[Rfam]
The family of this 88-nucleotide RNA sequence from Gluconobacter morbifer is "tRNA".
RNA sequence: GGAGAGAUGGCCGAGCGGCUUAAGGCGCACGCUUGGAAAGCGUGUGUACGUUAAUAGCGUACCGAGGGUUCGAAUCCCUCUCUCUCCG
Numbered sequence: 001g002g003a004g005a006g007a008u009g010g011c012c013g014a015g016c017g018g019c020u021u022a023a024g025g026c027g028c029a030c031g032c033u034u035g036g037a038a039a040g041c042g043u044g045u046g047u048a049c050g051u052u053a054a055u056a057g058c059g060u061a062c063c064g065a066g067g068g069u070u071c072g073a074a075u076c077c078c079u080c081u082c083u084c085u086c087c088g
Stems, first nucleotide, its partner, number of pairs: 001087007010026003028044005064080005
The family's consensus secondary structure is taken from published work.